[Rfam]
Notes:
The family of this 65-nucleotide RNA from Oryza punctata is "Plastid-rpl20 3UTR RNA". The family has 270 seed sequences and 587 matches in Rfam 15.1. About the family: Plastid rpl20 is a non-coding RNA (ncRNA) recognised in plastids. It was found in the three prime untranslated region (3UTR) of rpl20 gene, it presence in the 3UTR region sugest a role in transcript maduration. Rfam classes the family as a cis-regulatory element. NCBI's taxonomy places the organism under Eukaryota, Viridiplantae, Poaceae, Oryzinae, Oryza. On this family, see Richter et al., Plant Commun 2023: "Retrograde signaling in plants: A critical review focusing on the GUN pathway and beyond". The family's consensus secondary structure was predicted with LocARNA.

RNA sequence: AAAAAAUUCCCGGAGAGGUAACUCCGGGAAGAUACAAUAAAUUAAAUAUCUGAUCAUGGCUCAAG
Numbered sequence: 001a002a003a004a005a006a007u008u009c010c011c012g013g014a015g016a017g018g019u020a021a022c023u024c025c026g027g028g029a030a031g032a033u034a035c036a037a038u039a040a041a042u043u044a045a046a047u048a049u050c051u052g053a054u055c056a057u058g059g060c061u062c063a064a065g
Base pairs, nucleotide, nucleotide: 007030008029009028010027011026012025013024014023015022048061050059051058